[Rfam]
RNA: Small nucleolar RNA SNORD53/SNORD92
RNA sequence: AUGCUGUGAUGAUAUCCUCAUGGUUUCGCGUCUGUCUGAGUCUCAGAGAUGACACCUUUCUCUUGGCUGUUUGAGCAU
Numbered sequence: 001a002u003g004c005u006g007u008g009a010u011g012a013u014a015u016c017c018u019c020a021u022g023g024u025u026u027c028g029c030g031u032c033u034g035u036c037u038g039a040g041u042c043u044c045a046g047a048g049a050u051g052a053c054a055c056c057u058u059u060c061u062c063u064u065g066g067c068u069g070u071u072u073g074a075g076c077a078u
Stems, first nucleotide, its partner, number of pairs: 001078004